[Rfam]
RNA sequence: UAAAUACUUCGGGGCACCGUGUAAUUCGGGACCGGCGGUAAAGUCCGCGAACCCAAAUGGGUUGAACUUGUGAAAUUCAAGUACCGACAGUAAAGUCUGGAUGGAAGAAGAUUUGU
Numbered sequence: 001u002a003a004a005u006a007c008u009u010c011g012g013g014g015c016a017c018c019g020u021g022u023a024a025u026u027c028g029g030g031a032c033c034g035g036c037g038g039u040a041a042a043g044u045c046c047g048c049g050a051a052c053c054c055a056a057a058u059g060g061g062u063u064g065a066a067c068u069u070g071u072g073a074a075a076u077u078c079a080a081g082u083a084c085c086g087a088c089a090g091u092a093a094a095g096u097c098u099g100g101a102u103g104g105a106a107g108a109a110g111a112u113u114u115g116u
Stems, first nucleotide, its partner, number of pairs: 003114002007110004017029003031096002033086002035048004043084002051062003066082005088099003